[Rfam]
RNA sequence: UCCGCGAGUAGAAGCGGCCAAGGUUCUUUUGGACCUGGGGCAUUGCUCCGACA
Numbered sequence: 001u002c003c004g005c006g007a008g009u010a011g012a013a014g015c016g017g018c019c020a021a022g023g024u025u026c027u028u029u030u031g032g033a034c035c036u037g038g039g040g041c042a043u044u045g046c047u048c049c050g051a052c053a
Stems, first nucleotide, its partner, number of pairs: 006048005015038001018040002021036006
This 53-nucleotide sequence from Roseomonas indoligenes belongs to the Rfam family "Xanthine riboswitch aptamer (NMT1 RNA)". Pairs were carried over by alignment from the consensus structure, which is taken from published work. It scores 47 bits against the family's covariance model. On this family, see Yu and Breaker, RNA 2020: "A bacterial riboswitch class senses xanthine and uric acid to regulate genes associated with purine oxidation".